[Rfam]
RNA sequence: GCCGGGAUUCCGACCGCUAUACAAGACCCGAAAGGGGAAGGCGGCCGGGCACGUUUUCGCAGGCGUGUUUCUGAGAUCCCGGCGCCAGCGC
Dot-bracket structure: ((((((((...(.((.((........(((....)))...)).)).).((((((((......))))))))......))))))))........

sRNA-Xcc1: a 91-nucleotide RNA sequence from Lichenibacterium minor. The source organism's lineage runs through Bacteria, Pseudomonadati, Pseudomonadota, Hyphomicrobiales and Lichenibacterium.